Shown here is a 116-nucleotide RNA from Treponema parvum, a member of the family "TD-1 RNA". Its Rfam clan is "TD (Treponema denticola) motifs". Lineage of the source: Bacteria > Spirochaetota > Spirochaetia > Treponemataceae > Treponema. Pairs were carried over by alignment from the consensus structure, which is taken from published work. A reference for the family is Weinberg et al. (2007), "Identification of 22 candidate structured RNAs in bacteria using the CMfinder comparative genomics pipeline", Nucleic Acids Res.
RNA sequence: CAUGAACUGUCGAGUUUCGGGUGAAAUCGAAACAUCGCAGUAUUAUAUGUGCGCUUAUCGCACACGAAUGCAACAGUUUCCAAAGUUCAUGCUUUGUUCAACUGUUGCAUUUUAGG
Numbered sequence: 001c002a003u004g005a006a007c008u009g010u011c012g013a014g015u016u017u018c019g020g021g022u023g024a025a026a027u028c029g030a031a032a033c034a035u036c037g038c039a040g041u042a043u044u045a046u047a048u049g050u051g052c053g054c055u056u057a058u059c060g061c062a063c064a065c066g067a068a069u070g071c072a073a074c075a076g077u078u079u080c081c082a083a084a085g086u087u088c089a090u091g092c093u094u095u096g097u098u099c100a101a102c103u104g105u106u107g108c109a110u111u112u113u114a115g116g
Stems, first nucleotide, its partner, number of pairs: 012036002014033007049063005068110011081096006